[Rfam]
RNA sequence: CGUGUCGGCUGAAUCAGAGAUUGGCUGGCACAGUGUUUAACCUUAAUGUAUUAGGAAAUGAUUAUGUCUCUGAAUGCAGAAACUAAAGCAGCUAUCGUUGCAGAUUAUGCACGUGGCGAA
Numbered sequence: 001c002g003u004g005u006c007g008g009c010u011g012a013a014u015c016a017g018a019g020a021u022u023g024g025c026u027g028g029c030a031c032a033g034u035g036u037u038u039a040a041c042c043u044u045a046a047u048g049u050a051u052u053a054g055g056a057a058a059u060g061a062u063u064a065u066g067u068c069u070c071u072g073a074a075u076g077c078a079g080a081a082a083c084u085a086a087a088g089c090a091g092c093u094a095u096c097g098u099u100g101c102a103g104a105u106u107a108u109g110c111a112c113g114u115g116g117c118g119a120a
Stems, first nucleotide, its partner, number of pairs: 007026006051073005